[Rfam]
RNA sequence: GUCCUUACGCAGGAGGCCUCUAUCGAUGACGUUCACACGGAGAUAGAGAGAUUGCUAGGUUGGAAAUCCAAACCACUGCAAAUUCAAGUCUUAUGUCUUUCGUGGCAUGAGCCCCCUCUCAAGCUUUGGGAGGAUGCAAUUUUUGGAGUAGGCUUUUGAAGCCU
Numbered sequence: 001g002u003c004c005u006u007a008c009g010c011a012g013g014a015g016g017c018c019u020c021u022a023u024c025g026a027u028g029a030c031g032u033u034c035a036c037a038c039g040g041a042g043a044u045a046g047a048g049a050g051a052u053u054g055c056u057a058g059g060u061u062g063g064a065a066a067u068c069c070a071a072a073c074c075a076c077u078g079c080a081a082a083u084u085c086a087a088g089u090c091u092u093a094u095g096u097c098u099u100u101c102g103u104g105g106c107a108u109g110a111g112c113c114c115c116c117u118c119u120c121a122a123g124c125u126u127u128g129g130g131a132g133g134a135u136g137c138a139a140u141u142u143u144u145g146g147a148g149u150a151g152g153c154u155u156u157u158g159a160a161g162c163c164u
Base pairs, nucleotide, nucleotide: 018048019047020046021045022044023043024042030039031038032037078137079136080135083130084129085128086127087126088125090123091122092121150164151163152162153161
Dot-bracket structure: .................(((((((.....(((....)))..))))))).............................(((..((((((.(((............................))).))))))....)))............((((.......))))
The family of this 164-nucleotide RNA sequence from Encephalitozoon cuniculi is "U4 spliceosomal RNA". The sequence is in the family's curated seed alignment. U4 small nuclear RNA (U4 snRNA) is a component of the major U2-dependent spliceosome. For this family Rfam cites "Structures of the fully assembled Saccharomyces cerevisiae spliceosome before activation" (Bai et al., Science, 2018). The organism belongs to Encephalitozoon cuniculi, within Eukaryota.